[Rfam]
The family of this 89-nucleotide sequence from Bacillus velezensis is "pan motif".

RNA sequence: UGGGCAGUAUCAUAAUGAACUGCACCCGAUCAGCAGAACAGAGAUUACGAAAAGUCUGCCUUGAUCCAAAAAAGGACUGGGACAGAGGG
Numbered sequence: 001u002g003g004g005c006a007g008u009a010u011c012a013u014a015a016u017g018a019a020c021u022g023c024a025c026c027c028g029a030u031c032a033g034c035a036g037a038a039c040a041g042a043g044a045u046u047a048c049g050a051a052a053a054g055u056c057u058g059c060c061u062u063g064a065u066c067c068a069a070a071a072a073a074g075g076a077c078u079g080g081g082a083c084a085g086a087g088g089g
Base pairs, nucleotide, nucleotide: 002026003025004023005022006021007020008019010018011017056085057084058083059081060080061079063077065076066075067074
The family's consensus secondary structure is taken from published work.